The record is a 182-nucleotide RNA from Neobacillus thermocopriae, which matches "Lysine riboswitch aptamer" in Rfam.
RNA sequence: AGUGAGGAUAGAGGCGCAAAGACCAUUAGUACCCAUUCGGAGGAUAAUGAGAUCCAAGGAUGAAUGGCGAAAGGGGAAUUUGCCGAAGUUUCAAUGAACCUCAUUGUUCUUGAAGCUGGUUCUGCUGUUGAAUAAGCACAGAACUGUCAUAUAGGUAAACUAUAUGGAGGGCUAUCUCACGC
Numbered sequence: 001a002g003u004g005a006g007g008a009u010a011g012a013g014g015c016g017c018a019a020a021g022a023c024c025a026u027u028a029g030u031a032c033c034c035a036u037u038c039g040g041a042g043g044a045u046a047a048u049g050a051g052a053u054c055c056a057a058g059g060a061u062g063a064a065u066g067g068c069g070a071a072a073g074g075g076g077a078a079u080u081u082g083c084c085g086a087a088g089u090u091u092c093a094a095u096g097a098a099c100c101u102c103a104u105u106g107u108u109c110u111u112g113a114a115g116c117u118g119g120u121u122c123u124g125c126u127g128u129u130g131a132a133u134a135a136g137c138a139c140a141g142a143a144c145u146g147u148c149a150u151a152u153a154g155g156u157a158a159a160c161u162a163u164a165u166g167g168a169g170g171g172c173u174a175u176c177u178c179a180c181g182c
Base pairs, nucleotide, nucleotide: 006177007176008175009174010173011172016083017082018081019080020079023076024075033067034066035065036064037063038062039061087117088116089115090114091113092112093111094110096109097108098107099106118145119144120143121142122141123140124139126138127137128136129135147167148166149165150164151163152162153161

Lineage of the source: Bacteria > Bacillati > Bacillota > Caryophanales > Neobacillus.